Shown here is a 122-nucleotide sequence from Enterovirus geswini, a member of the family "Enterovirus 5' cloverleaf cis-acting replication element". Taxonomically the source falls in Enterovirus G (Viruses, Orthornavirae, Pisuviricota, Ensavirinae). About the family: This family represents a cis-regulatory element found at the 5' end of Enterovirus genomes. The element has a cloverleaf like secondary structure and is known to be a multifunctional cis-acting replication element (CRE), required for the initiation of negative strand RNA synthesis.
RNA sequence: CUAAAACAGCCUGCGGGUUGUACCCGCCCGCAGGGCCCACUGGGCGCUAGUACUCUGGUACGCUAGUACACUAGCACGUUAGUGCUUUUGUACGCCAGUACCUUUGUACGCCUGUUUUAUUU
Numbered sequence: 001c002u003a004a005a006a007c008a009g010c011c012u013g014c015g016g017g018u019u020g021u022a023c024c025c026g027c028c029c030g031c032a033g034g035g036c037c038c039a040c041u042g043g044g045c046g047c048u049a050g051u052a053c054u055c056u057g058g059u060a061c062g063c064u065a066g067u068a069c070a071c072u073a074g075c076a077c078g079u080u081a082g083u084g085c086u087u088u089u090g091u092a093c094g095c096c097a098g099u100a101c102c103u104u105u106g107u108a109c110g111c112c113u114g115u116u117u118u119a120u121u122u
Stems, first nucleotide, its partner, number of pairs: 002119007010034009035045003046111002050109004057102004